[Rfam]
RNA sequence: AUUGUGUAGUAUUAUAAGACAUUCAUCGUACUGGUGGGAGAUCCAUGUGAACGACUCCUAUACACCCAUAGAAUCUGAGCACA
Numbered sequence: 001a002u003u004g005u006g007u008a009g010u011a012u013u014a015u016a017a018g019a020c021a022u023u024c025a026u027c028g029u030a031c032u033g034g035u036g037g038g039a040g041a042u043c044c045a046u047g048u049g050a051a052c053g054a055c056u057c058c059u060a061u062a063c064a065c066c067c068a069u070a071g072a073a074u075c076u077g078a079g080c081a082c083a
Stems, first nucleotide, its partner, number of pairs: 003083004
The record is an 83-nucleotide RNA from Triticum turgidum, which matches "Small nucleolar RNA snoR8a" in Rfam. Rfam classes the family as a C/D-box small nucleolar RNA. Rfam links the family to the GO terms RNA processing and nucleolus. NCBI's taxonomy places the organism under Eukaryota, Spermatophyta, Magnoliopsida, Pooideae, Triticum turgidum. The base pairs follow the family's consensus structure, which was predicted with WAR.